Rfam assigns this 58-nucleotide RNA sequence from Digitaria exilis to the family "Plastid-psbA-3 3UTR RNA". For this family Rfam cites "Retrograde signaling in plants: A critical review focusing on the GUN pathway and beyond" (Richter et al., Plant Commun, 2023). The source organism's lineage runs through Eukaryota, Viridiplantae, Liliopsida, Paniceae and Digitaria. Rfam classes the family as a cis-regulatory element.
RNA sequence: AAAGGAGCAAUAUCAACCUUCUUGAUAGAACAAGAAAUUCAUUAUUGCUCCUUUACGU
Numbered sequence: 001a002a003a004g005g006a007g008c009a010a011u012a013u014c015a016a017c018c019u020u021c022u023u024g025a026u027a028g029a030a031c032a033a034g035a036a037a038u039u040c041a042u043u044a045u046u047g048c049u050c051c052u053u054u055a056c057g058u
Base pairs, nucleotide, nucleotide: 001054002053003052004051005050006049007048008047009046010045011044012043019036020035021034022033023032024031
The family is grouped with related families in Rfam's "Plastid-psbA 3UTR RNA clan".